Annotation
Rfam assigns this 292-nucleotide sequence from Phoenicibacter congonensis to the family "RT-2 RNA". The organism belongs to Phoenicibacter, within Bacteria.
RNA sequence: CCCGGCCAGACCGAGUAAGCCCGCAUGGGCUGAAAGCCGCGCCGAUGUUUUUGUUUGGAAGGAGGGCAUAACCCUCCCGCGGGAAUGCGGGUAAAUACAUACCAGCGGUAUCUCUCUGGCCGAUACCGCGACGUUCGACGCGGCUGCCCGGACGCUUCUUGCAUGACACGGGAUGGUGACAUAGGCGAAGGAAUCUAAGCCAAGUACCGUGUUUCAUGAGCAGUCCGCUAUGGAGUACACAACGCACCACUAUAAUAACACUCUGCGAGGUAUCGAAGUGACCAGUAUUGAA
Numbered sequence: 001c002c003c004g005g006c007c008a009g010a011c012c013g014a015g016u017a018a019g020c021c022c023g024c025a026u027g028g029g030c031u032g033a034a035a036g037c038c039g040c041g042c043c044g045a046u047g048u049u050u051u052u053g054u055u056u057g058g059a060a061g062g063a064g065g066g067c068a069u070a071a072c073c074c075u076c077c078c079g080c081g082g083g084a085a086u087g088c089g090g091g092u093a094a095a096u097a098c099a100u101a102c103c104a105g106c107g108g109u110a111u112c113u114c115u116c117u118g119g120c121c122g123a124u125a126c127c128g129c130g131a132c133g134u135u136c137g138a139c140g141c142g143g144c145u146g147c148c149c150g151g152a153c154g155c156u157u158c159u160u161g162c163a164u165g166a167c168a169c170g171g172g173a174u175g176g177u178g179a180c181a182u183a184g185g186c187g188a189a190g191g192a193a194u195c196u197a198a199g200c201c202a203a204g205u206a207c208c209g210u211g212u213u214u215c216a217u218g219a220g221c222a223g224u225c226c227g228c229u230a231u232g233g234a235g236u237a238c239a240c241a242a243c244g245c246a247c248c249a250c251u252a253u254a255a256u257a258a259c260a261c262u263c264u265g266c267g268a269g270g271u272a273u274c275g276a277a278g279u280g281a282c283c284a285g286u287a288u289u290g291a292a
Base pairs, nucleotide, nucleotide: 004043005042006041019030020029021028022027130274131273134269135268136267137266139265140228141227142226143225145222146221147220149218154162155161165213166212167211168210169209170208171207232264233263234262235261236260